[Rfam]
Notes: This 73-nucleotide RNA from Atribacter laminatus belongs to the Rfam family "tRNA". Lineage of the source: Bacteria > Pseudomonadati > Atribacterales > Atribacteraceae > Atribacter.

RNA sequence: GGGGGUGUAGCUCAGCUGGGAGAGCGCCACGUUCGCAACGUGGAGGCCACGGGUUCGAAUCCCGUCAUCUCCA
Numbered sequence: 001g002g003g004g005g006u007g008u009a010g011c012u013c014a015g016c017u018g019g020g021a022g023a024g025c026g027c028c029a030c031g032u033u034c035g036c037a038a039c040g041u042g043g044a045g046g047c048c049a050c051g052g053g054u055u056c057g058a059a060u061c062c063c064g065u066c067a068u069c070u071c072c073a
Base pairs, nucleotide, nucleotide: 001072002071003070004069005068006067007066010025011024012023013022027043028042029041030040031039049065050064051063052062053061